[Rfam]
RNA sequence: CACGAGAGUAGAAGCGUUCACCGCCCCGCGCUCGCGGCACCGCCACGGUGCUGCCUGAGCCGAAGCGGCCGGAAAUUGCUCUCGAA
Numbered sequence: 001c002a003c004g005a006g007a008g009u010a011g012a013a014g015c016g017u018u019c020a021c022c023g024c025c026c027c028g029c030g031c032u033c034g035c036g037g038c039a040c041c042g043c044c045a046c047g048g049u050g051c052u053g054c055c056u057g058a059g060c061c062g063a064a065g066c067g068g069c070c071g072g073a074a075a076u077u078g079c080u081c082u083c084g085a086a
Stems, first nucleotide, its partner, number of pairs: 005082006015071001018073002021068004